A member of the RNA family "MIR2670 microRNA precursor family" from Medicago truncatula, 203 nucleotides long. Pairs were carried over by alignment from the consensus structure, which was predicted with RNAalifold. The source organism's lineage runs through Eukaryota, Spermatophyta, Gunneridae, Papilionoideae and Medicago. Rfam links the family to the GO terms RISC complex and miRNA-mediated post-transcriptional gene silencing.
RNA sequence: UUUGGAGGAAAUAGUGGUCCGUUAAGUGAAAAAAGACAUCAUCCUGUGAGAUAAAAUUAGGUUUGUUUCCUUUUACUCCUAAAAUCUUUUUACCGUGGGUAAAAAGAAUCAAUAUGGGGGUAUAAAAGGAACCAAAUUUAAAUUUAACUCAAGGGUUCCUGAUGCCGUUUUCCCCAACAAGACGGAUCACUAUUUUCCCCAAG
Numbered sequence: 001u002u003u004g005g006a007g008g009a010a011a012u013a014g015u016g017g018u019c020c021g022u023u024a025a026g027u028g029a030a031a032a033a034a035g036a037c038a039u040c041a042u043c044c045u046g047u048g049a050g051a052u053a054a055a056a057u058u059a060g061g062u063u064u065g066u067u068u069c070c071u072u073u074u075a076c077u078c079c080u081a082a083a084a085u086c087u088u089u090u091u092a093c094c095g096u097g098g099g100u101a102a103a104a105a106g107a108a109u110c111a112a113u114a115u116g117g118g119g120g121u122a123u124a125a126a127a128g129g130a131a132c133c134a135a136a137u138u139u140a141a142a143u144u145u146a147a148c149u150c151a152a153g154g155g156u157u158c159c160u161g162a163u164g165c166c167g168u169u170u171u172c173c174c175c176a177a178c179a180a181g182a183c184g185g186a187u188c189a190c191u192a193u194u195u196u197c198c199c200c201a202a203g
Stems, first nucleotide, its partner, number of pairs: 003201003007197017026178002033171003038163004043155002047151004052146004057141009067131007074122008086106009